[Rfam]
Shown here is a 94-nucleotide RNA from Desulfosarcina alkanivorans, a member of the family "c-di-GMP-I-GGC riboswitch aptamer".
The base pairs follow the family's consensus structure, which is taken from published work.
NCBI's taxonomy places the organism under Bacteria, Thermodesulfobacteriota, Desulfobacteria, Desulfosarcinaceae, Desulfosarcina.
RNA sequence: CUCGAUAAUGGCAAACCGCCCGAAAGAGUGGGACGCAAAGCCACUGGCCUAAAUCUUCUGGAUCGCAGAGGACAAGGUAGCAGGGCCGCCGAAG
Numbered sequence: 001c002u003c004g005a006u007a008a009u010g011g012c013a014a015a016c017c018g019c020c021c022g023a024a025a026g027a028g029u030g031g032g033a034c035g036c037a038a039a040g041c042c043a044c045u046g047g048c049c050u051a052a053a054u055c056u057u058c059u060g061g062a063u064c065g066c067a068g069a070g071g072a073c074a075a076g077g078u079a080g081c082a083g084g085g086c087c088g089c090c091g092a093a094g
Stems, first nucleotide, its partner, number of pairs: 001094001003091002011036002016031004021026001034080001040086003044083003047078003